[Rfam]
RNA sequence: GCUGUUGGGUGAAGAGGCCCAGGAAUGAACGCUGGGCACGGCGCCUGAGUCGGACUGAGAGUGUUCCUUCUGAGAACAGC
Numbered sequence: 001g002c003u004g005u006u007g008g009g010u011g012a013a014g015a016g017g018c019c020c021a022g023g024a025a026u027g028a029a030c031g032c033u034g035g036g037c038a039c040g041g042c043g044c045c046u047g048a049g050u051c052g053g054a055c056u057g058a059g060a061g062u063g064u065u066c067c068u069u070c071u072g073a074g075a076a077c078a079g080c
Stems, first nucleotide, its partner, number of pairs: 001080005
This 80-nucleotide sequence from Sus scrofa belongs to the Rfam family "Small nucleolar RNA U83B". By type it is a C/D-box small nucleolar RNA. Its family is annotated with nucleolus and RNA processing in the Gene Ontology. Rfam's curators write: U83B belongs to the C/D family of snoRNAs. U83B like U83A has no documented RNA target and they share the same host gene with the C/D box snoRNA U43 (RPL3). N.B. U83A/B/C have no sequence similarity with the U83 snoRNA that was cloned by Jady and Kiss (2000). The pairing is the family consensus, mapped onto this sequence. The match comes from Rfam's covariance-model search (66 bits).